[Rfam]
This 105-nucleotide RNA sequence from Anisodus acutangulus belongs to the Rfam family "Plastid-psbA-1 3UTR RNA". The base pairs follow the family's consensus structure, which was predicted with LocARNA. NCBI's taxonomy places the organism under Eukaryota, Euphyllophyta, Spermatophyta, Gunneridae, Anisodus. The family is grouped with related families in Rfam's "Plastid-psbA 3UTR RNA clan". The family's RNA type in Rfam is cis-regulatory element. Plastid psbA-1 is a non-coding RNA (ncRNA) present in plastids. It was identified in inverted repeat sequences in the 3 prime untranslate region (3UTR) of photosystem II quinone-binding protein (psbA). The match comes from Rfam's covariance-model search (74 bits).
RNA sequence: UUGAAAUCAAAUGGAUAAGAUCCCAGUCUAGUCUAUAGGAGGUUUUGAAAAGAAAGGAGCAAUAAUCAUUUUCUUUUUCUAUCAAGAAGGUGCUAUUGCUCCUUU
Numbered sequence: 001u002u003g004a005a006a007u008c009a010a011a012u013g014g015a016u017a018a019g020a021u022c023c024c025a026g027u028c029u030a031g032u033c034u035a036u037a038g039g040a041g042g043u044u045u046u047g048a049a050a051a052g053a054a055a056g057g058a059g060c061a062a063u064a065a066u067c068a069u070u071u072u073c074u075u076u077u078u079c080u081a082u083c084a085a086g087a088a089g090g091u092g093c094u095a096u097u098g099c100u101c102c103u104u105u
Stems, first nucleotide, its partner, number of pairs: 053105012067092003071088005
Dot-bracket structure: ....................................................((((((((((((..(((.(((((........))))).))).))))))))))))